[Rfam]
c-di-GMP-I riboswitch aptamer: a 91-nucleotide RNA from Paenibacillus methanolicus. Its family is annotated with cyclic-di-GMP binding in the Gene Ontology.

RNA sequence: ACAUGAGAAAAGCAAACUGCGUGAAAACGCAAGACGCAAAGCUAUAGGGGCUAAUGGUCGAACGAUGAACCGAUGCCUGCCAGCUACCGCU
Numbered sequence: 001a002c003a004u005g006a007g008a009a010a011a012g013c014a015a016a017c018u019g020c021g022u023g024a025a026a027a028c029g030c031a032a033g034a035c036g037c038a039a040a041g042c043u044a045u046a047g048g049g050g051c052u053a054a055u056g057g058u059c060g061a062a063c064g065a066u067g068a069a070c071c072g073a074u075g076c077c078u079g080c081c082a083g084c085u086a087c088c089g090c091u
Stems, first nucleotide, its partner, number of pairs: 012037002018031005040085004047081002049077003056071003
The match comes from Rfam's covariance-model search (65 bits). NCBI's taxonomy places the organism under Bacteria, Bacillati, Caryophanales, Paenibacillaceae, Paenibacillus. The family's consensus secondary structure is taken from published work.